[Rfam]
RNA sequence: CAGGCUAUGUGUAACUGGCGAGAGUGCGGAGAGAACCGCAAGGGAGCACAUAGUAUCGAUAGCCGCUCGCCUGGGCAAAAGGU
Dot-bracket structure: ...(((((((((..(([[[[[....((((......))))..))..))))))))).....(.(((..]]]]]..))).).....
Notes:
This 83-nucleotide RNA from Gracilibacillus boraciitolerans belongs to the Rfam family "ZMP/ZTP riboswitch aptamer (pfl RNA motif)". The literature on the family includes a 2015 paper in Nat Struct Mol Biol by Jones and Ferre-D'Amare, "Recognition of the bacterial alarmone ZMP through long-distance association of two RNA subdomains". The base pairs follow the family's consensus structure, which is taken from published work. Taxonomically the source falls in Gracilibacillus boraciitolerans (Bacteria, Bacillati, Caryophanales, Gracilibacillus). A search with the family's covariance model found it, with a score of 63 bits. Gene Ontology terms of the family: one-carbon metabolic process and regulation of purine nucleotide biosynthetic process.